tRNA: a 72-nucleotide RNA sequence from Tychaedon coryphoeus.
Rfam links the family to the GO term triplet codon-amino acid adaptor activity.

RNA sequence: GGGGACGUAGCUCAGCAGAAGAGCGCUUGCUUUGCAUGCAAGAGGCCUUGGGACCAACCCCCAGUAUCUCCA
Numbered sequence: 001g002g003g004g005a006c007g008u009a010g011c012u013c014a015g016c017a018g019a020a021g022a023g024c025g026c027u028u029g030c031u032u033u034g035c036a037u038g039c040a041a042g043a044g045g046c047c048u049u050g051g052g053a054c055c056a057a058c059c060c061c062c063a064g065u066a067u068c069u070c071c072a
Stems, first nucleotide, its partner, number of pairs: 001071005007065001010024004026042005048064005
Dot-bracket structure: (((((.(..((((.......)))).(((((.......))))).....(((((.......)))))).))))).
Rfam classes the family as a transfer RNA.